[Rfam]
RNA sequence: ACGUUCCUCACUGGAGAGAGGCGCGACCCAGCAGUAUCGGGCAUCGCGUCCACCGAAGGGGCAAGCGGGGCCGUCAUCCACGGCGCUGUCAAUCUCUCAGGUAAAGCGGACAGGGGGGGCCAA
Numbered sequence: 001a002c003g004u005u006c007c008u009c010a011c012u013g014g015a016g017a018g019a020g021g022c023g024c025g026a027c028c029c030a031g032c033a034g035u036a037u038c039g040g041g042c043a044u045c046g047c048g049u050c051c052a053c054c055g056a057a058g059g060g061g062c063a064a065g066c067g068g069g070g071c072c073g074u075c076a077u078c079c080a081c082g083g084c085g086c087u088g089u090c091a092a093u094c095u096c097u098c099a100g101g102u103a104a105a106g107c108g109g110a111c112a113g114g115g116g117g118g119g120c121c122a123a
Base pairs, nucleotide, nucleotide: 006118007117008116009115011113012112013111020050021049022048023047024046025045026044052102053101054100055098056097059096060095061094065089066088067087068086